RNA sequence: CACCGGAUGCCGCCGAGUCGCUGCACGCAGCGAACCGGGGACCCACCGCACCACUGGGGUGAAUCCCGCCCGGGCAGCCGCCCGGCCGGGUAGGGCCGCUUCCCGCCCGAACCCGUCAGCUGACUCGGUAGGCGGCCACGGAAGACCCA
Numbered sequence: 001c002a003c004c005g006g007a008u009g010c011c012g013c014c015g016a017g018u019c020g021c022u023g024c025a026c027g028c029a030g031c032g033a034a035c036c037g038g039g040g041a042c043c044c045a046c047c048g049c050a051c052c053a054c055u056g057g058g059g060u061g062a063a064u065c066c067c068g069c070c071c072g073g074g075c076a077g078c079c080g081c082c083c084g085g086c087c088g089g090g091u092a093g094g095g096c097c098g099c100u101u102c103c104c105g106c107c108c109g110a111a112c113c114c115g116u117c118a119g120c121u122g123a124c125u126c127g128g129u130a131g132g133c134g135g136c137c138a139c140g141g142a143a144g145a146c147c148c149a
Stems, first nucleotide, its partner, number of pairs: 011134004018033005034129006044056002057114003065090004093108004
The family of this 149-nucleotide sequence from Modestobacter caceresii is "c-di-AMP riboswitch aptamer (ydaO/yuaA leader)". Lineage of the source: Bacteria > Bacillati > Geodermatophilales > Geodermatophilaceae > Modestobacter. It scores 64 bits against the family's covariance model.